Plastid-atpF group II-D1 intron: a 53-nucleotide RNA from Musa balbisiana. Rfam 15.1 lists 1,372 matches to the family in 227 species. It scores 57 bits against the family's covariance model. Pairs were carried over by alignment from the consensus structure, which was predicted with LocARNA. From the family's description: Plastid atpF is a non-coding RNA (ncRNA) recognised in plastids. It has been reported in the intron group II-D1 region of ATP synthase (atpF) genes.
RNA sequence: UUUUUUGAUUUUGAUAUAGAACACUCAUAUCGAUAAAAGAAUUUUAAACCAUU
Numbered sequence: 001u002u003u004u005u006u007g008a009u010u011u012u013g014a015u016a017u018a019g020a021a022c023a024c025u026c027a028u029a030u031c032g033a034u035a036a037a038a039g040a041a042u043u044u045u046a047a048a049c050c051a052u053u
Stems, first nucleotide, its partner, number of pairs: 011033007